[Rfam]
RNA sequence: AGAAUGCACAUUUAUUAUCCCUGGGGCCAUGGGAUAAACAAAAACCCUACAAAAACAAGUUAGCACACCUUAGAAUUGUUCUAGCACGAUUACUAACUUAUGGCUCUGAUACUAGUUAAUGGGAAAAACCU
Numbered sequence: 001a002g003a004a005u006g007c008a009c010a011u012u013u014a015u016u017a018u019c020c021c022u023g024g025g026g027c028c029a030u031g032g033g034a035u036a037a038a039c040a041a042a043a044a045c046c047c048u049a050c051a052a053a054a055a056c057a058a059g060u061u062a063g064c065a066c067a068c069c070u071u072a073g074a075a076u077u078g079u080u081c082u083a084g085c086a087c088g089a090u091u092a093c094u095a096a097c098u099u100a101u102g103g104c105u106c107u108g109a110u111a112c113u114a115g116u117u118a119a120u121g122g123g124a125a126a127a128a129c130c131u
Base pairs, nucleotide, nucleotide: 009121010120011119012118014116015115016114022108023107024106025105026104027103028102029101030100031099032098033097048086053080054079057076060073061072062071063070